[Rfam]
Nucleotides: 069
Base pairs, nucleotide, nucleotide: 014026015025016024017023032059033058037054038053041050042049043048
Number, partner (000 for none) and nucleotide at each position: 001000c002000u003000u004000c005000a006000a007000c008000g009000a010000g011000c012000c013000g014026a015025g016024c017023c018000a019000c020000a021000a022000a023017g024016g025015c026014u027000g028000u029000u030000c031000a032059c033058g034000g035000u036000c037054c038053u039000g040000g041050c042049c043048a044000u045000a046000g047000g048043u049042g050041g051000c052000a053038a054037g055000c056000a057000a058033c059032g060000c061000c062000u063000g064000c065000g066000c067000c068000u069000c
Rfam assigns this 69-nucleotide RNA from Actinobacteria bacterium OK074 to the family "ASpks TB sRNA". The family has 77 seed sequences and 9,052 matches in Rfam 15.1. Pairs were carried over by alignment from the consensus structure, which is taken from published work. NCBI's taxonomy places the organism under Bacteria, Bacillati, Actinomycetota, Actinomycetes. The family's RNA type in Rfam is antisense RNA.